Small nucleolar RNA SNORA71: a 127-nucleotide RNA from Liparis tanakae.
NCBI's taxonomy places the organism under Eukaryota, Gnathostomata, Actinopteri, Cottales, Liparis.
The literature on the family includes a 1997 paper in Genes Dev by Ganot et al., "The family of box ACA small nucleolar RNAs is defined by an evolutionarily conserved secondary structure and ubiquitous sequence elements essential for RNA accumulation".
The family's RNA type in Rfam is H/ACA-box small nucleolar RNA.
The members of this family belong to the H/ACA class of snoRNAs which bind a number of proteins (including dyskerin, Gar1p and Nop10p) to form snoRNP complexes.
[Rfam]
RNA sequence: UCCUGUAUCGAAAGUGGUCAUGGCGUCCUCAUCGUCAGCUCAUUGAUAGUACAGGCAGAUGAAGAUGAGAGCCUUUCCCGUGUGUGAAGGAUCCUCAGUUCCUAUCAGACCCUGAUGCUCUCAGACA
Numbered sequence: 001u002c003c004u005g006u007a008u009c010g011a012a013a014g015u016g017g018u019c020a021u022g023g024c025g026u027c028c029u030c031a032u033c034g035u036c037a038g039c040u041c042a043u044u045g046a047u048a049g050u051a052c053a054g055g056c057a058g059a060u061g062a063a064g065a066u067g068a069g070a071g072c073c074u075u076u077c078c079c080g081u082g083u084g085u086g087a088a089g090g091a092u093c094c095u096c097a098g099u100u101c102c103u104a105u106c107a108g109a110c111c112c113u114g115a116u117g118c119u120c121u122c123a124g125a126c127a
Base pairs, nucleotide, nucleotide: 002055003054004053005052006051007050008049013044014043015042016041017040019038022036023035024034025033066123067122068121069120070119071118072117082110083109085107086106088103089102090101091100